[Rfam]
RNA: Small nucleolar RNA SNORD111
Organism: Octodon degus
RNA sequence: UAUCCUGAAAUGAUGUCUAAAUUUCGUGUCUCUGACAGUUUUCUGUGGAGAUGGUUUUUGCUGUAUUGAUCUGAUCAGGCUG
Numbered sequence: 001u002a003u004c005c006u007g008a009a010a011u012g013a014u015g016u017c018u019a020a021a022u023u024u025c026g027u028g029u030c031u032c033u034g035a036c037a038g039u040u041u042u043c044u045g046u047g048g049a050g051a052u053g054g055u056u057u058u059u060g061c062u063g064u065a066u067u068g069a070u071c072u073g074a075u076c077a078g079g080c081u082g
Stems, first nucleotide, its partner, number of pairs: 001082002004079002